Eukaryotic large subunit ribosomal RNA: a 595-nucleotide part of an RNA from Volvox reticuliferus.
RNA sequence: CGGGGAAAGAAGACCCUGUUGAGCUUGACUCUAGUCCGACUUUGUGAAAUAACUUAAGAGGUGUAGAAUAAGUGGGAGCUUCGGCAACGGUGAAAUACCACUACUUUUAACGUUGUUUUACUUAUUCCAUUGUUUGGAGGCGGGACUUCGUCCCAGCUUCUGGCUCUAAGGCGGCUUAUGCACGCCAAUCCAGGUGGAAGACAUUGUCAGGUGGGGAGUUUGGCUGGGGCGGCACAUCUGUUAAAAGAUAACGCAGGUGUCCUAAGAUGAGCUCAACGAGAACAGAAAUCUCGUGUAGAACAAAAGGGUAAAAGCUCAUUUGAUUUUGAUUUUCAGUACGAAUACAAACUGUGAAAGCAUGGCCUAUCGAUCCUUUAGCCUUUCAGGAUUUGAAGCUAGAGGUGUCAGAAAAGUUACCACAGGGAUAACUGGCUUGUGGCAGCCAAGCGUUCAUAGCGACGUUGCUUUUUGAUCCUUCGAUGUCGGCUCUUCCUAUCAUUGUGAAGCAGCAUUCACCAAGCGUUGGAUUGUUCACCCACUAAUAGGGAACGUGAGCUGGGUUUAGACCGUCGUGAGACAGGUUAGUUUUACCCUA
Numbered sequence: 001c002g003g004g005g006a007a008a009g010a011a012g013a014c015c016c017u018g019u020u021g022a023g024c025u026u027g028a029c030u031c032u033a034g035u036c037c038g039a040c041u042u043u044g045u046g047a048a049a050u051a052a053c054u055u056a057a058g059a060g061g062u063g064u065a066g067a068a069u070a071a072g073u074g075g076g077a078g079c080u081u082c083g084g085c086a087a088c089g090g091u092g093a094a095a096u097a098c099c100a101c102u103a104c105u106u107u108u109a110a111c112g113u114u115g116u117u118u119u120a121c122u123u124a125u126u127c128c129a130u131u132g133u134u135u136g137g138a139g140g141c142g143g144g145a146c147u148u149c150g151u152c153c154c155a156g157c158u159u160c161u162g163g164c165u166c167u168a169a170g171g172c173g174g175c176u177u178a179u180g181c182a183c184g185c186c187a188a189u190c191c192a193g194g195u196g197g198a199a200g201a202c203a204u205u206g207u208c209a210g211g212u213g214g215g216g217a218g219u220u221u222g223g224c225u226g227g228g229g230c231g232g233c234a235c236a237u238c239u240g241u242u243a244a245a246a247g248a249u250a251a252c253g254c255a256g257g258u259g260u261c262c263u264a265a266g267a268u269g270a271g272c273u274c275a276a277c278g279a280g281a282a283c284a285g286a287a288a289u290c291u292c293g294u295g296u297a298g299a300a301c302a303a304a305a306g307g308g309u310a311a312a313a314g315c316u317c318a319u320u321u322g323a324u325u326u327u328g329a330u331u332u333u334c335a336g337u338a339c340g341a342a343u344a345c346a347a348a349c350u351g352u353g354a355a356a357g358c359a360u361g362g363c364c365u366a367u368c369g370a371u372c373c374u375u376u377a378g379c380c381u382u383u384c385a386g387g388a389u390u391u392g393a394a395g396c397u398a399g400a401g402g403u404g405u406c407a408g409a410a411a412a413g414u415u416a417c418c419a420c421a422g423g424g425a426u427a428a429c430u431g432g433c434u435u436g437u438g439g440c441a442g443c444c445a446a447g448c449g450u451u452c453a454u455a456g457c458g459a460c461g462u463u464g465c466u467u468u469u470u471g472a473u474c475c476u477u478c479g480a481u482g483u484c485g486g487c488u489c490u491u492c493c494u495a496u497c498a499u500u501g502u503g504a505a506g507c508a509g510c511a512u513u514c515a516c517c518a519a520g521c522g523u524u525g526g527a528u529u530g531u532u533c534a535c536c537c538a539c540u541a542a543u544a545g546g547g548a549a550c551g552u553g554a555g556c557u558g559g560g561u562u563u564a565g566a567c568c569g570u571c572g573u574g575a576g577a578c579a580g581g582u583u584a585g586u587u588u589u590a591c592c593c594u595a
Stems, first nucleotide, its partner, number of pairs: 003594003007589002015423004020419002022415005028219004035211002038208003044121010054110007071102005078085002125199005135192004142154005170186004222235001223233003236258006261362002267319006273299002276294006300309002324348003329343004350359003373401006381395004432473001434471001436470001438466006447457002484559001485557004489551001490548005497522001501516005524538003528534001565583004569578003

The match comes from Rfam's covariance-model search (3306 bits). Pairs were carried over by alignment from the consensus structure, which is taken from published work. Lineage of the source: Eukaryota > Chlorophyta > Chlorophyceae > Volvocaceae > Volvox. Rfam links the family to the GO terms ribosome and structural constituent of ribosome.